[Rfam]
RNA sequence: CUUUAAACGUUAGCGCCAUGUACCUUUCUGGAUCGGUUGGUAGGUUGACGAGGUGGAGAGCUUAUCGAAAAUUCGGCGGAUACUCUCCCGCGUACUUUGAACGUGUCAUAUACUGUUAAAACAGCAGGCAACUGCAACAUAGAGGCAGUAUGAUCAAAGAAU
Numbered sequence: 001c002u003u004u005a006a007a008c009g010u011u012a013g014c015g016c017c018a019u020g021u022a023c024c025u026u027u028c029u030g031g032a033u034c035g036g037u038u039g040g041u042a043g044g045u046u047g048a049c050g051a052g053g054u055g056g057a058g059a060g061c062u063u064a065u066c067g068a069a070a071a072u073u074c075g076g077c078g079g080a081u082a083c084u085c086u087c088c089c090g091c092g093u094a095c096u097u098u099g100a101a102c103g104u105g106u107c108a109u110a111u112a113c114u115g116u117u118a119a120a121a122c123a124g125c126a127g128g129c130a131a132c133u134g135c136a137a138c139a140u141a142g143a144g145g146c147a148g149u150a151u152g153a154u155c156a157a158a159g160a161a162u
Stems, first nucleotide, its partner, number of pairs: 022045004027040002030037001055088005065076004089105005109152007124135004
This 162-nucleotide sequence from Acetivibrio ethanolgignens belongs to the Rfam family "glmS glucosamine-6-phosphate activated ribozyme aptamer".
A search with the family's covariance model found it, with a score of 67 bits.
Pairs were carried over by alignment from the consensus structure, which is taken from published work.
A reference for the family is Jansen et al. (2006), "Backbone and nucleobase contacts to glucosamine-6-phosphate in the glmS ribozyme", Nat Struct Mol Biol.
Taxonomically the source falls in Acetivibrio (Bacteria, Bacillati, Bacillota, Acetivibrionales).